[Rfam]
Record summary:
Rfam assigns this 104-nucleotide RNA from Tenuifilum thalassicum to the family "SAM riboswitch aptamer (S box leader)". A search with the family's covariance model found it, with a score of 76 bits.

RNA sequence: GAAUUAUAGAGAAGAGCGGAGAGAACAGGCUCUAUGAAGCUCUAGCAACCUGCCCCCCAAAAGGCAAGGUGCUAAAACCUGACCCAAAAGGGUAAUUAUAACUC
Numbered sequence: 001g002a003a004u005u006a007u008a009g010a011g012a013a014g015a016g017c018g019g020a021g022a023g024a025a026c027a028g029g030c031u032c033u034a035u036g037a038a039g040c041u042c043u044a045g046c047a048a049c050c051u052g053c054c055c056c057c058c059a060a061a062a063g064g065c066a067a068g069g070u071g072c073u074a075a076a077a078c079c080u081g082a083c084c085c086a087a088a089a090g091g092g093u094a095a096u097u098a099u100a101a102c103u104c
Stems, first nucleotide, its partner, number of pairs: 001104002004101005013043005021032003026081004044073004049069002051066004077096001082093004